tRNA: an 86-nucleotide sequence from Lachnospiraceae bacterium MD329. It scores 54 bits against the family's covariance model.

RNA sequence: GCCGAUGUGGCGGAAUUGGCAGACGCCCGGGACUUAAAAUCCCGUGGGAAGAAAUUCCCGUACCGGUUCGACCCCGGUCAUCGGCA
Numbered sequence: 001g002c003c004g005a006u007g008u009g010g011c012g013g014a015a016u017u018g019g020c021a022g023a024c025g026c027c028c029g030g031g032a033c034u035u036a037a038a039a040u041c042c043c044g045u046g047g048g049a050a051g052a053a054a055u056u057c058c059c060g061u062a063c064c065g066g067u068u069c070g071a072c073c074c075c076g077g078u079c080a081u082c083g084g085c086a
Stems, first nucleotide, its partner, number of pairs: 001085007010026003028044005062078005